[Rfam]
RNA sequence: GCCACCGACUUCGAUCAGACACGAUAUCCUGCUGCGAUAUUGUGCGACCUGCAGUGUCAGUCGAAUUCGGAGGC
Numbered sequence: 001g002c003c004a005c006c007g008a009c010u011u012c013g014a015u016c017a018g019a020c021a022c023g024a025u026a027u028c029c030u031g032c033u034g035c036g037a038u039a040u041u042g043u044g045c046g047a048c049c050u051g052c053a054g055u056g057u058c059a060g061u062c063g064a065a066u067u068c069g070g071a072g073g074c
Base pairs, nucleotide, nucleotide: 001074002073003072005070006069007068011064012063013062014061015060023041024040025039026038027037028036046058047057048056
The record is a 74-nucleotide RNA sequence from Lophiotrema nucula, which matches "bZIP non canonical Hac1/Xbp1 intron" in Rfam. It is annotated as a small RNA. Rfam's curators write: bZIP intron RNA is a non-canonical intron that was first reported in HAC1 gene in yeast and XBP1 gene in Metazoa. The literature on the family includes a 2011 paper in RNA Biol by Hooks and Griffiths-Jones, "Conserved RNA structures in the non-canonical Hac1/Xbp1 intron". Taxonomically the source falls in Lophiotrema (Eukaryota, Fungi, Pezizomycotina, Pleosporomycetidae). Pairs were carried over by alignment from the consensus structure, which was predicted with RNAfold.